[Rfam]
RNA sequence: GCCGAGCUUUGUAACGAAAGCCUAUGACCCGAGUGGGGGCAAUGAGAUAAUGGUACAUGGUUUUUGCUCCUUGAGUCGGAUCUCAUGUGGUUUUGCGAUUGCUUGCCCGUUCCACGCCAAGAGUUGAGCUAUGGGAUCUUGGUUAAAGCUGUGGGUCUCGUGGCUCUUAGAUAAGGGUAUUGCGUGAGGCUGGUUUCACAGAGCAGCGAAGACCUUCCUCUCUUGGCAGUGGGAGGAUAACAGGCUUGACCCACUAAUGUCCAACAUGUCUCAUCGAGCAGACCUCCACUGAACCAUCUGUUAA
Numbered sequence: 001g002c003c004g005a006g007c008u009u010u011g012u013a014a015c016g017a018a019a020g021c022c023u024a025u026g027a028c029c030c031g032a033g034u035g036g037g038g039g040c041a042a043u044g045a046g047a048u049a050a051u052g053g054u055a056c057a058u059g060g061u062u063u064u065u066g067c068u069c070c071u072u073g074a075g076u077c078g079g080a081u082c083u084c085a086u087g088u089g090g091u092u093u094u095g096c097g098a099u100u101g102c103u104u105g106c107c108c109g110u111u112c113c114a115c116g117c118c119a120a121g122a123g124u125u126g127a128g129c130u131a132u133g134g135g136a137u138c139u140u141g142g143u144u145a146a147a148g149c150u151g152u153g154g155g156u157c158u159c160g161u162g163g164c165u166c167u168u169a170g171a172u173a174a175g176g177g178u179a180u181u182g183c184g185u186g187a188g189g190c191u192g193g194u195u196u197c198a199c200a201g202a203g204c205a206g207c208g209a210a211g212a213c214c215u216u217c218c219u220c221u222c223u224u225g226g227c228a229g230u231g232g233g234a235g236g237a238u239a240a241c242a243g244g245c246u247u248g249a250c251c252c253a254c255u256a257a258u259g260u261c262c263a264a265c266a267u268g269u270c271u272c273a274u275c276g277a278g279c280a281g282a283c284c285u286c287c288a289c290u291g292a293a294c295c296a297u298c299u300g301u302u303a304a
Stems, first nucleotide, its partner, number of pairs: 001040003004023001006021005028037003043304001045302002050297004056291002058288003063282004068277002072273004077268001078262004083257001085255001087254004093249001101245005107236002110234005116227008126166014141150003173216004181210001183208003190201003